[Rfam]
RNA sequence: GUAGGCGGAUUCGUCUCAAUCCACAUACGUUGGGUGGAUUGGAGUGAAACUUGAACUAAAUUCUACCCAGUCCAAUCCAACACACGUGGAUUGAGGUGAAUCCGACA
Numbered sequence: 001g002u003a004g005g006c007g008g009a010u011u012c013g014u015c016u017c018a019a020u021c022c023a024c025a026u027a028c029g030u031u032g033g034g035u036g037g038a039u040u041g042g043a044g045u046g047a048a049a050c051u052u053g054a055a056c057u058a059a060a061u062u063c064u065a066c067c068c069a070g071u072c073c074a075a076u077c078c079a080a081c082a083c084a085c086g087u088g089g090a091u092u093g094a095g096g097u098g099a100a101u102c103c104g105a106c107a
Stems, first nucleotide, its partner, number of pairs: 004106001006104009016094009026084001029081004035074008044066003
RNA: MIR5565 microRNA precursor family